[Rfam]
RNA: sucC RNA
RNA sequence: GUCACAGGUGGUGCGGCACUGAAACGGUGCAGCACCGAAUGCGCAGUACCUAACGAAGACGGUAAUAAG
Numbered sequence: 001g002u003c004a005c006a007g008g009u010g011g012u013g014c015g016g017c018a019c020u021g022a023a024a025c026g027g028u029g030c031a032g033c034a035c036c037g038a039a040u041g042c043g044c045a046g047u048a049c050c051u052a053a054c055g056a057a058g059a060c061g062g063u064a065a066u067a068a069g
Stems, first nucleotide, its partner, number of pairs: 009037006016030005